[Rfam]
RNA sequence: AGAUUCUAAGUAUGAACUCAAAAAAGAUCACAAAGAAACAAAAACUCUUCUUAUCUAAGGUAUAAAAUUAUUAGGGAAUAAAAAAGUACUUGAGGGUUAUUAUGGUGGCCACGAUUGGACUUGAACCAACGACCACUACCA
Numbered sequence: 001a002g003a004u005u006c007u008a009a010g011u012a013u014g015a016a017c018u019c020a021a022a023a024a025a026g027a028u029c030a031c032a033a034a035g036a037a038a039c040a041a042a043a044a045c046u047c048u049u050c051u052u053a054u055c056u057a058a059g060g061u062a063u064a065a066a067a068u069u070a071u072u073a074g075g076g077a078a079u080a081a082a083a084a085a086g087u088a089c090u091u092g093a094g095g096g097u098u099a100u101u102a103u104g105g106u107g108g109c110c111a112c113g114a115u116u117g118g119a120c121u122u123g124a125a126c127c128a129a130c131g132a133c134c135a136c137u138a139c140c141a
Stems, first nucleotide, its partner, number of pairs: 026039001028037001059072003103138006112131002115129004
Rfam assigns this 141-nucleotide RNA to the family "Bacterial antisense RNA HPnc0260". A search with the family's covariance model found it, with a score of 68 bits. The base pairs follow the family's consensus structure, which was predicted with CMfinder. The literature on the family includes a 2010 paper in Nature by Sharma et al., "The primary transcriptome of the major human pathogen Helicobacter pylori".